[Rfam]
RNA sequence: GUGUAAAAUGUAAUAACUAUGUCCUUACGAAUAAAAACAGUCGUAAUCCGAUUAUAUCAUCGUGUUUGUUUAUGUGCAAUAUAAAAAAACCUGGUCAUACAGUCCAGGUUUUUUUUGAU
Numbered sequence: 001g002u003g004u005a006a007a008a009u010g011u012a013a014u015a016a017c018u019a020u021g022u023c024c025u026u027a028c029g030a031a032u033a034a035a036a037a038c039a040g041u042c043g044u045a046a047u048c049c050g051a052u053u054a055u056a057u058c059a060u061c062g063u064g065u066u067u068g069u070u071u072a073u074g075u076g077c078a079a080u081a082u083a084a085a086a087a088a089a090c091c092u093g094g095u096c097a098u099a100c101a102g103u104c105c106a107g108g109u110u111u112u113u114u115u116u117g118a119u
Stems, first nucleotide, its partner, number of pairs: 033073001035071004039065001042062002083115012
Dot-bracket structure: ................................(.(((((..((.................))..)..)))).).........((((((((((((.........))))))))))))....
Rfam assigns this 119-nucleotide RNA sequence from Paenibacillus tyrphae to the family "Bacillus sRNA ncr1015".
On this family, see Irnov et al., Nucleic Acids Res 2010: "Identification of regulatory RNAs in Bacillus subtilis".
The source organism's lineage runs through Bacteria, Bacillota, Bacilli, Caryophanales and Paenibacillus.
A search with the family's covariance model found it, with a score of 106 bits.